[Rfam]
RNA sequence: AAACACGAUCGGCACAGCCGGAGCAAUCCGGUGUCGCAAAGCUUCCGGUCCGGAUCUGUUCGGAUAGCGGGGUUGCAUUG
Numbered sequence: 001a002a003a004c005a006c007g008a009u010c011g012g013c014a015c016a017g018c019c020g021g022a023g024c025a026a027u028c029c030g031g032u033g034u035c036g037c038a039a040a041g042c043u044u045c046c047g048g049u050c051c052g053g054a055u056c057u058g059u060u061c062g063g064a065u066a067g068c069g070g071g072g073u074u075g076c077a078u079u080g
Stems, first nucleotide, its partner, number of pairs: 012037002017032006040074004045070003048065007
Notes:
The record is an 80-nucleotide sequence from Niveibacterium umoris, which matches "c-di-GMP-I riboswitch aptamer" in Rfam. Its family is annotated with cyclic-di-GMP binding in the Gene Ontology. Pairs were carried over by alignment from the consensus structure, which is taken from published work.